[Rfam]
RNA sequence: UCUAUACUGAAUUUGCUGUGAAAAUACAGCGGUAUUAAGUGAUUGCGUUUCAACGUCCUGCUCGCAAGCUUUUCGUUGCUCCAUCCUCGGUACUCUCUGAAUUUCUCAGCACUGAUAAUUCCGCAAGGAAUACUUAGGUCCCGUGAGGGCACAAUUUCAGGAAUACAGGAAAGAUCGAUGUCUGAUACCAAAACUGGCCACGUUAAGUGGUUCAACGAGUCCAAAGGGUUUGGCUUCAUUGCUCAGGAAGGCGGUAGCGACGUAUUUGUUCACUACAGCGCAAUCAACUCCAGCGGCUUCCGUACUCUGACCGAAGGUCAGCAAGUACAGUUCACCGUUACUCAGGGCCCGAAAGGCCCGCAGGCAGAGAACGUAACCCCGGUCUGAGGUUAUGUCUCCGAUCUGCCCCCUGCCCCUCACGGGCUGCGGAACCUAAAAAAGCCGGCGAAUGCCGGCUUUUUUAUU
Numbered sequence: 001u002c003u004a005u006a007c008u009g010a011a012u013u014u015g016c017u018g019u020g021a022a023a024a025u026a027c028a029g030c031g032g033u034a035u036u037a038a039g040u041g042a043u044u045g046c047g048u049u050u051c052a053a054c055g056u057c058c059u060g061c062u063c064g065c066a067a068g069c070u071u072u073u074c075g076u077u078g079c080u081c082c083a084u085c086c087u088c089g090g091u092a093c094u095c096u097c098u099g100a101a102u103u104u105c106u107c108a109g110c111a112c113u114g115a116u117a118a119u120u121c122c123g124c125a126a127g128g129a130a131u132a133c134u135u136a137g138g139u140c141c142c143g144u145g146a147g148g149g150c151a152c153a154a155u156u157u158c159a160g161g162a163a164u165a166c167a168g169g170a171a172a173g174a175u176c177g178a179u180g181u182c183u184g185a186u187a188c189c190a191a192a193a194c195u196g197g198c199c200a201c202g203u204u205a206a207g208u209g210g211u212u213c214a215a216c217g218a219g220u221c222c223a224a225a226g227g228g229u230u231u232g233g234c235u236u237c238a239u240u241g242c243u244c245a246g247g248a249a250g251g252c253g254g255u256a257g258c259g260a261c262g263u264a265u266u267u268g269u270u271c272a273c274u275a276c277a278g279c280g281c282a283a284u285c286a287a288c289u290c291c292a293g294c295g296g297c298u299u300c301c302g303u304a305c306u307c308u309g310a311c312c313g314a315a316g317g318u319c320a321g322c323a324a325g326u327a328c329a330g331u332u333c334a335c336c337g338u339u340a341c342u343c344a345g346g347g348c349c350c351g352a353a354a355g356g357c358c359c360g361c362a363g364g365c366a367g368a369g370a371a372c373g374u375a376a377c378c379c380c381g382g383u384c385u386g387a388g389g390u391u392a393u394g395u396c397u398c399c400g401a402u403c404u405g406c407c408c409c410c411u412g413c414c415c416c417u418c419a420c421g422g423g424c425u426g427c428g429g430a431a432c433c434u435a436a437a438a439a440a441g442c443c444g445g446c447g448a449a450u451g452c453c454g455g456c457u458u459u460u461u462u463a464u465u
Base pairs, nucleotide, nucleotide: 003015004014006012025246028243029242030241031240039236042235044233046227048225049224055222058219061217066212068211069210070209074180075179076178077177078176085169086168087167090164091163094128095127096126140149141148142147182197183196184195186193250339251338252337253336254335259267260266272326273325274324280319281317284310285309286308293303346359347358350356361405362404363403364402365400367398368397369396408429409428410426412424413423414422415421435462436461437460438459439458440457441456442455443454444453445452446451
Rfam assigns this 465-nucleotide sequence from Marinobacter mobilis to the family "cspA thermoregulator". The family's consensus secondary structure is taken from published work. It is annotated as an RNA thermoregulator. The organism belongs to Marinobacter, within Bacteria.